[Rfam]
RNA sequence: GAUAUGCGAAGAAGCGGGAGGUUGCGACAGUUAGUCGGUUUUUCCGUGGAGUAUGUCCGAUUUUAAACCGGGCGA
Numbered sequence: 001g002a003u004a005u006g007c008g009a010a011g012a013a014g015c016g017g018g019a020g021g022u023u024g025c026g027a028c029a030g031u032u033a034g035u036c037g038g039u040u041u042u043u044c045c046g047u048g049g050a051g052u053a054u055g056u057c058c059g060a061u062u063u064u065a066a067a068c069c070g071g072g073c074g075a
Stems, first nucleotide, its partner, number of pairs: 014047003018044004025037004056075002061072003
This 75-nucleotide RNA sequence from Ruminococcus bovis belongs to the Rfam family "S10-Clostridia ribosomal protein leader". A search with the family's covariance model found it, with a score of 45 bits. A reference for the family is Eckert and Weinberg (2020), "Discovery of 20 novel ribosomal leader candidates in bacteria and archaea", BMC Microbiol. Taxonomically the source falls in Ruminococcus (Bacteria, Bacillati, Bacillota, Oscillospiraceae).